[Rfam]
RNA sequence: AGCUUUUAUGAGGUAUCAGCACUUUUCUUUCAUUAGGGGGAAGGAGUGAGGAAAGUACCAAAUAGCUGCAGACUUUUAAACUUUAAAUAGACAGGUCUGAGGGCCUGGACUUGUUUUUGCAUUUGACUUCAUUCUCUGAGGAGUUCAAUCACUUGGCGUGACUACUUCACUUCUUUCAAGAGAAACAGUAAGUUUUUUAAAAAGA
Number, nucleotide and partner (000 for none) at each position: 001a000002g020003c019004u018005u000006u000007u015008a014009u013010g000011a000012g000013g009014u008015a007016u000017c000018a004019g003020c002021a000022c000023u000024u000025u000026u000027c000028u000029u143030u142031c141032a000033u139034u138035a137036g136037g135038g134039g133040g130041a129042a128043g127044g000045a000046g000047u000048g123049a122050g000051g120052a000053a000054a118055g117056u000057a000058c000059c000060a000061a000062a000063u000064a000065g000066c000067u000068g000069c000070a098071g097072a096073c095074u094075u093076u000077u000078a000079a000080a000081c000082u000083u000084u000085a000086a000087a000088u000089a000090g000091a000092c000093a075094g074095g073096u072097c071098u070099g114100a000101g112102g111103g110104c000105c000106u000107g000108g000109a000110c103111u102112u101113g000114u099115u000116u000117u055118u054119g000120c051121a000122u049123u048124u000125g000126a000127c043128u042129u041130c040131a000132u000133u039134c038135u037136c036137u035138g034139a033140g000141g031142a030143g029144u000145u000146c000147a000148a000149u000150c000151a000152c000153u200154u199155g198156g197157c000158g196159u000160g194161a193162c192163u000164a000165c188166u185167u184168c182169a000170c180171u179172u178173c000174u000175u000176u000177c000178a172179a171180g170181a000182g168183a000184a167185a166186c000187a000188g165189u000190a000191a000192g162193u161194u160195u000196u158197u156198u155199a154200a153201a000202a000203a000204g000205a000